This 60-nucleotide RNA sequence from Dipodomys ordii belongs to the Rfam family "Small nucleolar RNA SNORD75". The base pairs follow the family's consensus structure, which was predicted with RNAalifold. Rfam classes the family as a C/D-box small nucleolar RNA. Taxonomically the source falls in Dipodomys (Eukaryota, Opisthokonta, Bilateria, Heteromyidae). Its family is annotated with RNA processing and nucleolus in the Gene Ontology. The literature on the family includes a 2002 paper in Mol Cell Biol by Galardi et al., "Purified box C/D snoRNPs are able to reproduce site-specific 2'-O-methylation of target RNA in vitro".
[Rfam]
RNA sequence: AGCCUGUGAUGGAAUAAGAGUAGUGGACAGAAGGGAUUUCUGAAAUCUUUUGCUGAGGCU
Numbered sequence: 001a002g003c004c005u006g007u008g009a010u011g012g013a014a015u016a017a018g019a020g021u022a023g024u025g026g027a028c029a030g031a032a033g034g035g036a037u038u039u040c041u042g043a044a045a046u047c048u049u050u051u052g053c054u055g056a057g058g059c060u
Base pairs, nucleotide, nucleotide: 001060002059003058004057